[Rfam]
RNA: che1 RNA
RNA sequence: UGGACAGGGGGGUUCCCGCCGACAGUCGGGGCCUGUCCGACCGGCUGUACACACCGUGCAGCCAGUGGUUGUCGCUCGGGGGUGAACGCCG
Dot-bracket structure: ((((((((.....(((((.(....).)))))))))))))...((((((((.....))))))))............................